[Rfam]
The family of this 264-nucleotide RNA from Youngiibacter fragilis is "Bacterial large signal recognition particle RNA". Pairs were carried over by alignment from the consensus structure, which is taken from published work. The signal recognition particle (SRP) is a universally conserved ribonucleoprotein involved in the co-translational targeting of proteins to membranes. The match comes from Rfam's covariance-model search (189 bits).

RNA sequence: CCGUGCUAGAUGGGGAACCAGCGGUGCCCUGUAACCUGCAAUCCGCUACAGCAGGGUUGAAUUCCUUUCCGAGGCCCAAGGCUUCAGGGCCUGACCCAUGAAAGUAACGUUGAUGGAUUGGUCCCACGCAAUGUACGGCUAUGAACCUCGUCAGGACCGGAAGGUAGCAGCGAUAAGUAGUUUGUGCGUGUGCCGUGGUAAACCUGUUCUGAGUUUACUGCUAGGGUAACGCCUGGAACCUUUCUGUCGGAGAAAGGUGCACGG
Numbered sequence: 001c002c003g004u005g006c007u008a009g010a011u012g013g014g015g016a017a018c019c020a021g022c023g024g025u026g027c028c029c030u031g032u033a034a035c036c037u038g039c040a041a042u043c044c045g046c047u048a049c050a051g052c053a054g055g056g057u058u059g060a061a062u063u064c065c066u067u068u069c070c071g072a073g074g075c076c077c078a079a080g081g082c083u084u085c086a087g088g089g090c091c092u093g094a095c096c097c098a099u100g101a102a103a104g105u106a107a108c109g110u111u112g113a114u115g116g117a118u119u120g121g122u123c124c125c126a127c128g129c130a131a132u133g134u135a136c137g138g139c140u141a142u143g144a145a146c147c148u149c150g151u152c153a154g155g156a157c158c159g160g161a162a163g164g165u166a167g168c169a170g171c172g173a174u175a176a177g178u179a180g181u182u183u184g185u186g187c188g189u190g191u192g193c194c195g196u197g198g199u200a201a202a203c204c205u206g207u208u209c210u211g212a213g214u215u216u217a218c219u220g221c222u223a224g225g226g227u228a229a230c231g232c233c234u235g236g237a238a239c240c241u242u243u244c245u246g247u248c249g250g251a252g253a254a255a256g257g258u259g260c261a262c263g264g
Base pairs, nucleotide, nucleotide: 001264002263003262004261005260006259009058010057011056012030013029014028015027017025018024019023035055036054037053038052039051064257065256066255067254068253069252073248074247075246079241080240081239083237084236085235086234087233088232092228093227096225097224100221104218105217106215107214108213115209116208117207118206120204121203122202124198125197126196127195128194129190130189132188133187134186135185136184137182138181139180140179141178142177148173149172150171151170156165157164158163
Taxonomically the source falls in Youngiibacter fragilis (Bacteria, Bacillota, Eubacteriales, Youngiibacter).